[Rfam]
RNA sequence: GGUCGCUUUACUAUAGCAGCACGUAAAUAUUGGAGGUCAACAAACUGAAGUCUCCAGUAUUGAUCGUGCUGCUGAAGCAAAGCUGAC
Numbered sequence: 001g002g003u004c005g006c007u008u009u010a011c012u013a014u015a016g017c018a019g020c021a022c023g024u025a026a027a028u029a030u031u032g033g034a035g036g037u038c039a040a041c042a043a044a045c046u047g048a049a050g051u052c053u054c055c056a057g058u059a060u061u062g063a064u065c066g067u068g069c070u071g072c073u074g075a076a077g078c079a080a081a082g083c084u085g086a087c
Stems, first nucleotide, its partner, number of pairs: 001087001003085001005083002014074010024063001026061011
Shown here is an 87-nucleotide sequence from Oryzias javanicus, a member of the family "mir-15 microRNA precursor family". This family represents the related mir-15a and mir-15b sequences. In humans miR-15a and miR-16 are clustered within 0.5 kb at 13q14. This region has been shown to be deleted in more than half of B cell chronic lymphocytic leukaemias (CLL). Both miR-15a and miR-16 are deleted or down-regulated in more than two thirds of CLL cases. The mature sequence is excised from the 5' arm of the hairpin. A reference for the family is Lagos-Quintana et al. (2001), "Identification of novel genes coding for small expressed RNAs", Science. Its Rfam clan is "mir-15 clan". Lineage of the source: Eukaryota > Neopterygii > Teleostei > Acanthomorphata > Oryzias.